[Rfam]
RNA sequence: AAGAGAGUUUUAGCGCCGGACCUGUAUGUCGCACUAUCGGCUUUGCCGAAUUUGCAGGUGACGAGGAAGAAGUUAUCGAAGUUUUCGGCGGAUGCUUCUUGUCCCAUAAGUGCGGGGAUCAAAGGCUUUUCACAAAGGCGGAGCGGCAACGCACCGUGUACAAAGGAAAAGCAAGGCACAAA
Numbered sequence: 001a002a003g004a005g006a007g008u009u010u011u012a013g014c015g016c017c018g019g020a021c022c023u024g025u026a027u028g029u030c031g032c033a034c035u036a037u038c039g040g041c042u043u044u045g046c047c048g049a050a051u052u053u054g055c056a057g058g059u060g061a062c063g064a065g066g067a068a069g070a071a072g073u074u075a076u077c078g079a080a081g082u083u084u085u086c087g088g089c090g091g092a093u094g095c096u097u098c099u100u101g102u103c104c105c106a107u108a109a110g111u112g113c114g115g116g117g118a119u120c121a122a123a124g125g126c127u128u129u130u131c132a133c134a135a136a137g138g139c140g141g142a143g144c145g146g147c148a149a150c151g152c153a154c155c156g157u158g159u160a161c162a163a164a165g166g167a168a169a170a171g172c173a174a175g176g177c178a179c180a181a182a
Base pairs, nucleotide, nucleotide: 020059021058022057023056024055025054026053029050068099069098070097071096072095076088077087078086079085101119102118103117104116105115125172126171127170128169129168130167131166139156140155141154143152144151145150
RNA: glmS glucosamine-6-phosphate activated ribozyme aptamer
Organism: Eubacterium sp. CAG:180